RNA: U4 spliceosomal RNA
Organism: Kluyveromyces lactis
RNA sequence: AUCCUUAUGCACGGGAAAUACGCAUAUCAGUGAGGAUUCGUCCGAGAUUGUGUUAUUGCUGGUUGAAAUUUAUUUUUAACCAUGACCUCCUCCUCAUAACGUAUUGUGUCUUUCAUUUUACACAUGUGUUAUGCAGGGAAUUUUUGGAACCUACCUUUUUUUCCUUCUUCAAGAAG
Number, nucleotide and partner (000 for none) at each position: 001a000002u000003c000004c000005u000006u000007a000008u000009g000010c000011a000012c000013g000014g000015g000016a000017a000018a000019u000020a053021c052022g051023c050024a049025u000026a048027u047028c046029a000030g000031u000032g000033a000034g043035g042036a041037u000038u000039c000040g000041u036042c035043c034044g000045a000046g028047a027048u026049u024050g023051u022052g021053u020054u000055a000056u000057u000058g000059c000060u000061g000062g000063u000064u000065g000066a000067a000068a000069u000070u000071u000072a000073u000074u000075u000076u000077u000078a000079a000080c000081c000082a000083u000084g000085a000086c000087c000088u000089c000090c000091u138092c137093c136094u000095c133096a132097u131098a130099a129100c128101g127102u126103a125104u000105u000106g000107u000108g000109u000110c000111u000112u000113u000114c000115a000116u000117u000118u000119u000120a000121c000122a000123c000124a000125u103126g102127u101128g100129u099130u098131a097132u096133g095134c000135a000136g093137g092138g091139a000140a000141u000142u000143u000144u000145u000146g000147g000148a000149a000150c000151c176152u175153a000154c173155c000156u000157u000158u000159u000160u000161u000162u000163c000164c000165u000166u000167c000168u000169u000170c000171a000172a000173g154174a000175a152176g151